[Rfam]
SAM riboswitch aptamer (S box leader): a 120-nucleotide RNA sequence from Malonomonas rubra.
Gene Ontology term of the family: regulation of gene expression.
RNA sequence: UCUUUAUCCAGAGUGGUGGAGGGAAACGGCCCUGCGAAACCACGGCAACCGGUCGGUUGAAAAAUCGGCGCCUGGUGCCAAUUCCUGCCCAGUGGAAAUUUUCCAGGGGACAGAUGAGGA
Numbered sequence: 001u002c003u004u005u006a007u008c009c010a011g012a013g014u015g016g017u018g019g020a021g022g023g024a025a026a027c028g029g030c031c032c033u034g035c036g037a038a039a040c041c042a043c044g045g046c047a048a049c050c051g052g053u054c055g056g057u058u059g060a061a062a063a064a065u066c067g068g069c070g071c072c073u074g075g076u077g078c079c080a081a082u083u084c085c086u087g088c089c090c091a092g093u094g095g096a097a098a099u100u101u102u103c104c105a106g107g108g109g110a111c112a113g114a115u116g117a118g119g120a
Stems, first nucleotide, its partner, number of pairs: 001120008013043005021032003028085002044079004049075002052071002083112001088109003